[Rfam]
RNA sequence: CUUUCUAAAAGGCAAAACCGCUGAAAAGCGGCGGCGCAAAGUCACAGAUCUAACGCAUUCGUGCCAGGAUGGCUGGGCUGUCGUG
Numbered sequence: 001c002u003u004u005c006u007a008a009a010a011g012g013c014a015a016a017a018c019c020g021c022u023g024a025a026a027a028g029c030g031g032c033g034g035c036g037c038a039a040a041g042u043c044a045c046a047g048a049u050c051u052a053a054c055g056c057a058u059u060c061g062u063g064c065c066a067g068g069a070u071g072g073c074u075g076g077g078c079u080g081u082c083g084u085g
Base pairs, nucleotide, nucleotide: 012037013036018031019030020029021028022027040079041078042077043076045075046074047073048070049069050068055064056063057062

The family of this 85-nucleotide RNA sequence from Sporolactobacillus putidus is "c-di-GMP-I riboswitch aptamer". The match comes from Rfam's covariance-model search (66 bits). Taxonomically the source falls in Sporolactobacillus (Bacteria, Bacillati, Bacillota, Bacilli).